[Rfam]
RNA sequence: CUGCAAGCCUCCAGCGUGCUCGGGUCUGGAGUGACCCAGUGCAUUACUACAGUGCUUGCAACAACAUUUGAAAUGGUUUGAGGCCUUGCUCUGUACCAUCUUCGGAGCAAGGUUAUAGAAAUUCCAGACAAUG
Number, nucleotide and partner (000 for none) at each position: 001c000002u000003g059004c058005a057006a056007g055008c054009c000010u000011c000012c000013a000014g000015c000016g000017u043018g042019c041020u000021c000022g037023g036024g035025u034026c033027u000028g000029g000030a000031g000032u000033g026034a025035c024036c023037c022038a000039g000040u000041g019042c018043a017044u000045u000046a000047c000048u000049a000050c000051a000052g000053u000054g008055c007056u006057u005058g004059c003060a000061a000062c000063a000064a000065c000066a000067u000068u000069u126070g125071a000072a123073a122074u000075g000076g000077u000078u000079u000080g000081a000082g000083g000084c112085c111086u110087u109088g108089c107090u000091c105092u104093g103094u000095a000096c000097c000098a000099u000100c000101u000102u000103c093104g092105g091106a000107g089108c088109a087110a086111g085112g084113u000114u000115a000116u000117a000118g000119a000120a000121a000122u073123u072124c000125c070126a069127g000128a000129c000130a000131a000132u000133g000